RNA sequence: AUUGAGCUCUGAAAUCUUGUUGUGUGCAUCAAAUCCAGCAAGUUUCAGAGCUUUUUG
Numbered sequence: 001a002u003u004g005a006g007c008u009c010u011g012a013a014a015u016c017u018u019g020u021u022g023u024g025u026g027c028a029u030c031a032a033a034u035c036c037a038g039c040a041a042g043u044u045u046c047a048g049a050g051c052u053u054u055u056u057g
Base pairs, nucleotide, nucleotide: 005052006051007050008049009048010047011046012045013044014043016042017041018040019039020038021037022036024035